[Rfam]
RNA sequence: GACGGGCCCCUGCGCAUUGUGGCAUGGCCAACCUGGUCAGGUCGGGAACGAAGCAGCCACAGCUAUUCACCAUAAGUGCCGCAGAUCAGGCUCGUCUCC
Numbered sequence: 001g002a003c004g005g006g007c008c009c010c011u012g013c014g015c016a017u018u019g020u021g022g023c024a025u026g027g028c029c030a031a032c033c034u035g036g037u038c039a040g041g042u043c044g045g046g047a048a049c050g051a052a053g054c055a056g057c058c059a060c061a062g063c064u065a066u067u068c069a070c071c072a073u074a075a076g077u078g079c080c081g082c083a084g085a086u087c088a089g090g091c092u093c094g095u096c097u098c099c
Base pairs, nucleotide, nucleotide: 004093005092006091007090008089010084011083012082013081014080015076017075018074019073020072021071022070024066025065026064027063028062034059035058036057037056042051043050044049